RNA sequence: CCCGCCACUAUGCUAGUCUGUGUGAGUGACUUGGUAUAAUCCAGUGGAGGCUGAUAUAGACCCAGCUCUAGGAAGCAGUGCCACCCAAACCAGUGGGUGACUCUGUGCCGAAAGGCCUGGAACAGAC
Numbered sequence: 001c002c003c004g005c006c007a008c009u010a011u012g013c014u015a016g017u018c019u020g021u022g023u024g025a026g027u028g029a030c031u032u033g034g035u036a037u038a039a040u041c042c043a044g045u046g047g048a049g050g051c052u053g054a055u056a057u058a059g060a061c062c063c064a065g066c067u068c069u070a071g072g073a074a075g076c077a078g079u080g081c082c083a084c085c086c087a088a089a090c091c092a093g094u095g096g097g098u099g100a101c102u103c104u105g106u107g108c109c110g111a112a113a114g115g116c117c118u119g120g121a122a123c124a125g126a127c
Stems, first nucleotide, its partner, number of pairs: 005047005018034002020031001021029001062120004066115002069112001071109002076105003080101001084097003
Shown here is a 127-nucleotide RNA from Chanos chanos, a member of the family "Small nucleolar RNA SNORA65". Rfam's curators write: U65 belongs to the H/ACA class of snoRNAs which are thought to guide the sites of modification of uridines to pseudouridines. A reference for the family is Huttenhofer et al. (2001), "RNomics: an experimental approach that identifies 201 candidates for novel, small, non-messenger RNAs in mouse", EMBO J. The base pairs follow the family's consensus structure, which was predicted with RNAalifold.